[Rfam]
RNA: c-di-GMP-I riboswitch aptamer
Organism: Bacillus infantis
RNA sequence: UCUUACUAAGGGCAAAUUUUACGAAAGUAAAAGACGCAAAGCCACGGGCCUAAAACAAGUUAUUUGUCAUGGCAGCCGGGCCGCCAAG
Numbered sequence: 001u002c003u004u005a006c007u008a009a010g011g012g013c014a015a016a017u018u019u020u021a022c023g024a025a026a027g028u029a030a031a032a033g034a035c036g037c038a039a040a041g042c043c044a045c046g047g048g049c050c051u052a053a054a055a056c057a058a059g060u061u062a063u064u065u066g067u068c069a070u071g072g073c074a075g076c077c078g079g080g081c082c083g084c085c086a087a088g
Base pairs, nucleotide, nucleotide: 012037013036017032018031019030020029021028022027041081042080043079045078046077047076048073049072050071055067056066057065058064